[Rfam]
RNA sequence: AUACACACGGAAAGAGCUUGUCCGGUUCGGUCUUUGAUAUUCGGGGUCCUGCGAGUUUUGGCUGCCGAUUUUGACACUUGCUGCAUCGAUGACGACGAGGUUCGACUACUGGAUUGAUUUGUGGAGGUCUGGGUACUCUUUUGUGAGGGGUGUGGUGUUUGGGAGGUGGCCCAUCAACUGGUUGAGGACUCAAUGCUUCGAACCUGGGGGUCUUGGUUGAAGGGCUAGUAGGGGGAGAGGAGAUCAGUUGCCGGGACCCAUCUAGAGUUGGAGUCAAAGUUUCGUACUUGUCUGGCCUCUGUGUUUCUUCUUUCUUUGCUCUGUCUGGAUCCUUGGUUUCUUAGGGGAGGGCUGUUGGUGUUCUUGGUUGACUGGCAUAAUGUGGCUUUUCUUUGGAACAGGGACAACCUCGAAAGAGGUGGUCCUGGUCGUCCUCCCCGCUGAAAAGUUGGGAGGGCGGCCCCUCGGAGACGAGG
Numbered sequence: 001a002u003a004c005a006c007a008c009g010g011a012a013a014g015a016g017c018u019u020g021u022c023c024g025g026u027u028c029g030g031u032c033u034u035u036g037a038u039a040u041u042c043g044g045g046g047u048c049c050u051g052c053g054a055g056u057u058u059u060g061g062c063u064g065c066c067g068a069u070u071u072u073g074a075c076a077c078u079u080g081c082u083g084c085a086u087c088g089a090u091g092a093c094g095a096c097g098a099g100g101u102u103c104g105a106c107u108a109c110u111g112g113a114u115u116g117a118u119u120u121g122u123g124g125a126g127g128u129c130u131g132g133g134u135a136c137u138c139u140u141u142u143g144u145g146a147g148g149g150g151u152g153u154g155g156u157g158u159u160u161g162g163g164a165g166g167u168g169g170c171c172c173a174u175c176a177a178c179u180g181g182u183u184g185a186g187g188a189c190u191c192a193a194u195g196c197u198u199c200g201a202a203c204c205u206g207g208g209g210g211u212c213u214u215g216g217u218u219g220a221a222g223g224g225c226u227a228g229u230a231g232g233g234g235g236a237g238a239g240g241a242g243a244u245c246a247g248u249u250g251c252c253g254g255g256a257c258c259c260a261u262c263u264a265g266a267g268u269u270g271g272a273g274u275c276a277a278a279g280u281u282u283c284g285u286a287c288u289u290g291u292c293u294g295g296c297c298u299c300u301g302u303g304u305u306u307c308u309u310c311u312u313u314c315u316u317u318g319c320u321c322u323g324u325c326u327g328g329a330u331c332c333u334u335g336g337u338u339u340c341u342u343a344g345g346g347g348a349g350g351g352c353u354g355u356u357g358g359u360g361u362u363c364u365u366g367g368u369u370g371a372c373u374g375g376c377a378u379a380a381u382g383u384g385g386c387u388u389u390u391c392u393u394u395g396g397a398a399c400a401g402g403g404a405c406a407a408c409c410u411c412g413a414a415a416g417a418g419g420u421g422g423u424c425c426u427g428g429u430c431g432u433c434c435u436c437c438c439c440g441c442u443g444a445a446a447a448g449u450u451g452g453g454a455g456g457g458c459g460g461c462c463c464c465u466c467g468g469a470g471a472c473g474a475g476g
Base pairs, nucleotide, nucleotide: 255275256274257273258271259270260269277289278288279287280286
Record summary: Ascomycota telomerase RNA: a 476-nucleotide part of an RNA from Cercophora samala. It is annotated as a non-coding RNA gene. The family is grouped with related families in Rfam's "Telomerase clan". Rfam links the family to the GO terms telomere maintenance via telomerase, telomerase catalytic core complex and telomerase activity.